RNA sequence: ACAGGGGGAGCUGAAAACCUGAAACAGAGUAGGCU
Numbered sequence: 001a002c003a004g005g006g007g008g009a010g011c012u013g014a015a016a017a018c019c020u021g022a023a024a025c026a027g028a029g030u031a032g033g034c035u
Base pairs, nucleotide, nucleotide: 002021003020004019005018010034011033012032
Dot-bracket structure: .((((....[[[.....))))..........]]].